Source information:
The record is a 109-nucleotide RNA sequence from Brachypodium distachyon, which matches "MIR5070 microRNA precursor family" in Rfam. Clan: MIR2863 microRNA precursor clan. The family has 2 seed sequences and 266 matches in Rfam 15.1. The source organism's lineage runs through Eukaryota, Tracheophyta, commelinids, Poales and Brachypodium.
[Rfam]
RNA sequence: CAGGGUACCCUUUGACCCAGUUCAACCAAAUGAACUAAAAUUUUAAAAUGACAACUUUUUGAAAAACUAGUUCAUUUGUUUGAACUAAGGAGGGUCAAAGGGUACCCUG
Number, nucleotide and partner (000 for none) at each position: 001c000002a108003g107004g106005g105006u104007a103008c102009c101010c100011u099012u098013u097014g096015a095016c094017c093018c092019a086020g085021u084022u083023c082024a081025a080026c000027c078028a077029a076030a075031u074032g073033a072034a071035c070036u069037a068038a000039a000040a000041u000042u000043u000044u000045a000046a000047a000048a000049u000050g000051a000052c000053a000054a000055c000056u000057u000058u000059u000060u000061g000062a000063a000064a000065a000066a000067c000068u037069a036070g035071u034072u033073c032074a031075u030076u029077u028078g027079u000080u025081u024082g023083a022084a021085c020086u019087a000088a000089g000090g000091a000092g018093g017094g016095u015096c014097a013098a012099a011100g010101g009102g008103u007104a006105c005106c004107c003108u002109g000